A member of the RNA family "Small nucleolar RNA snoR104" from Striga asiatica, 115 nucleotides long. NCBI's taxonomy places the organism under Eukaryota, Magnoliopsida, lamiids, Orobanchaceae, Striga. The base pairs follow the family's consensus structure, which was predicted with WAR.
[Rfam]
RNA sequence: AGGGGGCAUCCAUAAACUGAGAUGGUACCUGAUAUAAUCUUCCUAAAAUAAACCUCCUAUUUUAUUCUCUUGCACUGCGAAAGUAAGCUUUGCAAGUCAGUAAUGAGGUACAUUU
Numbered sequence: 001a002g003g004g005g006g007c008a009u010c011c012a013u014a015a016a017c018u019g020a021g022a023u024g025g026u027a028c029c030u031g032a033u034a035u036a037a038u039c040u041u042c043c044u045a046a047a048a049u050a051a052a053c054c055u056c057c058u059a060u061u062u063u064a065u066u067c068u069c070u071u072g073c074a075c076u077g078c079g080a081a082a083g084u085a086a087g088c089u090u091u092g093c094a095a096g097u098c099a100g101u102a103a104u105g106a107g108g109u110a111c112a113u114u115u
Base pairs, nucleotide, nucleotide: 001030002029003028005026007024008023009022010021055110057108069096070095071094072093073092074091077088078087